[Rfam]
RNA sequence: AAUUUGAACUGUUAGGUGAGACUCCUACGUGAAAAUAUGCUGUUGCCCAGCAACAUCCAGAGAUGCCAACGGGUUAAACAGGGAUCGUCGAUUUAAGGCCCUCCCCAGACAGCUGGUUACUAACUUUGUAGUAACGUUACGUCACGUAGUGUUAAAACUGAACGACGAGUGAAUUAA
Numbered sequence: 001a002a003u004u005u006g007a008a009c010u011g012u013u014a015g016g017u018g019a020g021a022c023u024c025c026u027a028c029g030u031g032a033a034a035a036u037a038u039g040c041u042g043u044u045g046c047c048c049a050g051c052a053a054c055a056u057c058c059a060g061a062g063a064u065g066c067c068a069a070c071g072g073g074u075u076a077a078a079c080a081g082g083g084a085u086c087g088u089c090g091a092u093u094u095a096a097g098g099c100c101c102u103c104c105c106c107a108g109a110c111a112g113c114u115g116g117u118u119a120c121u122a123a124c125u126u127u128g129u130a131g132u133a134a135c136g137u138u139a140c141g142u143c144a145c146g147u148a149g150u151g152u153u154a155a156a157a158c159u160g161a162a163c164g165a166c167g168a169g170u171g172a173a174u175u176a177a
Base pairs, nucleotide, nucleotide: 005173008170009169010168011163012162013096015159016158017157020153021152022151025149026148027147028146029145030144031143032142039113040112041111042110043109045074046073047072048071054065055064056063057062081105082104083103084102087099088098089097116135117134118133119132120131121130

M-box riboswitch aptamer (ykoK leader): a 177-nucleotide RNA from Lactobacillus iners. Rfam 15.1 lists 1,095 matches to the family in 932 species. Rfam describes the family as follows. M-box riboswitch, also know as ykoK leader is described as a metaloregulatory RNA that sense divalent metals and function as a genetic control element of genes related to divalent metal transport in bacteria. It was first reported upstream of the B.subtilis ykoK gene and genes with related functions in other bacteria.